[Rfam]
RNA: Flavo-1 RNA
Organism: Flavobacterium johnsoniae
RNA sequence: CCCUAGCCCCGAUAGUAGUGGAAAUCCUUUUGUGCCGGGGUUCGGCACAAAAGAUUGCAACGAAUAGCGGGAUUAGCU
Numbered sequence: 001c002c003c004u005a006g007c008c009c010c011g012a013u014a015g016u017a018g019u020g021g022a023a024a025u026c027c028u029u030u031u032g033u034g035c036c037g038g039g040g041u042u043c044g045g046c047a048c049a050a051a052a053g054a055u056u057g058c059a060a061c062g063a064a065u066a067g068c069g070g071g072a073u074u075a076g077c078u
Stems, first nucleotide, its partner, number of pairs: 009070003013066002018061002023056004029051008